This 119-nucleotide RNA sequence from Etheostoma spectabile belongs to the Rfam family "U5 spliceosomal RNA". By type it is a spliceosomal small nuclear RNA. Lineage of the source: Eukaryota > Teleostei > Neoteleostei > Etheostomatinae > Oligocephalus. A search with the family's covariance model found it, with a score of 73 bits.
RNA sequence: UCACUCUGGUUUCUCUUCAUAACGCACAAGUCUUUCGCCUUUUACUAAAGACUUCCUUGAAGGGGAACCCCCCGAUGAGAUGAAACUCUUUUUGGUGGGCUUUGCUGUUUGGCCGAGCC
Numbered sequence: 001u002c003a004c005u006c007u008g009g010u011u012u013c014u015c016u017u018c019a020u021a022a023c024g025c026a027c028a029a030g031u032c033u034u035u036c037g038c039c040u041u042u043u044a045c046u047a048a049a050g051a052c053u054u055c056c057u058u059g060a061a062g063g064g065g066a067a068c069c070c071c072c073c074g075a076u077g078a079g080a081u082g083a084a085a086c087u088c089u090u091u092u093u094g095g096u097g098g099g100c101u102u103u104g105c106u107g108u109u110u111g112g113c114c115g116a117g118c119c
Base pairs, nucleotide, nucleotide: 004079005078006077009068010067011066012065013064014063015062016061017060018059019058028054029053030052031051032050033049034048035047097119099118100117101116102115104113